Rfam assigns this 160-nucleotide RNA sequence from Phaseolus vulgaris to the family "U1 spliceosomal RNA". A search with the family's covariance model found it, with a score of 122 bits. From the family's description: U1 is a small nuclear RNA (snRNA) component of the spliceosome (involved in pre-mRNA splicing). Its 5' end forms complementary base pairs with the 5' splice junction, thus defining the 5' donor site of an intron. Rfam classes the family as a spliceosomal small nuclear RNA.
RNA sequence: AUACUUACCUGGAUGGGGUCAAUGGGUGAUCACUUAGGCCCAUGGUCUGGAGCAGUGACUUUUAUUGCACUUUAAAAGGGUGCUGUUCUAAGGUCUGUCAAAGUGACAGAGCCUACGUCAAAAUUUGUGUCAGAGGGGCUUGCGUUCGCGCAGCCCCUAC
Numbered sequence: 001a002u003a004c005u006u007a008c009c010u011g012g013a014u015g016g017g018g019u020c021a022a023u024g025g026g027u028g029a030u031c032a033c034u035u036a037g038g039c040c041c042a043u044g045g046u047c048u049g050g051a052g053c054a055g056u057g058a059c060u061u062u063u064a065u066u067g068c069a070c071u072u073u074a075a076a077a078g079g080g081u082g083c084u085g086u087u088c089u090a091a092g093g094u095c096u097g098u099c100a101a102a103g104u105g106a107c108a109g110a111g112c113c114u115a116c117g118u119c120a121a122a123a124u125u126u127g128u129g130u131c132a133g134a135g136g137g138g139c140u141u142g143c144g145u146u147c148g149c150g151c152a153g154c155c156c157c158u159a160c
Stems, first nucleotide, its partner, number of pairs: 012119004016048006023042005049089003055083003059079003062075002091114003094110003098106002134158004141152004